[Rfam]
RNA sequence: UCACGCCCUGGAGAUGGUGUUCCUCCAUUAACCACCGCGCGCUAAACGCGGUUGAUGACGCCUACAGAAAC
Dot-bracket structure: .........[[[[..((((((.]]]].......((((((.......))))))....)))))).........